Annotation:
Shown here is a 143-nucleotide RNA sequence from Streptomyces sp. SID8352, a member of the family "Streptomyces-metH RNA". It scores 80 bits against the family's covariance model. The family's RNA type in Rfam is small RNA.
RNA sequence: CCGGUCCGUCCCCCGGACCCCUCGACCCAUCACGGCCCGGUCCCCGCUACCCUGGCGGCGUGCGUCACCCCGGAUCGUCCCCCGUGGACGGCCCUCCGGGGCGCAAAGCCGACAGCCGUCGCAUCCUAGGGAGCCCGUCCAUG
Numbered sequence: 001c002c003g004g005u006c007c008g009u010c011c012c013c014c015g016g017a018c019c020c021c022u023c024g025a026c027c028c029a030u031c032a033c034g035g036c037c038c039g040g041u042c043c044c045c046g047c048u049a050c051c052c053u054g055g056c057g058g059c060g061u062g063c064g065u066c067a068c069c070c071c072g073g074a075u076c077g078u079c080c081c082c083c084g085u086g087g088a089c090g091g092c093c094c095u096c097c098g099g100g101g102c103g104c105a106a107a108g109c110c111g112a113c114a115g116c117c118g119u120c121g122c123a124u125c126c127u128a129g130g131g132a133g134c135c136c137g138u139c140c141a142u143g
Stems, first nucleotide, its partner, number of pairs: 061105004069100006108122002111120003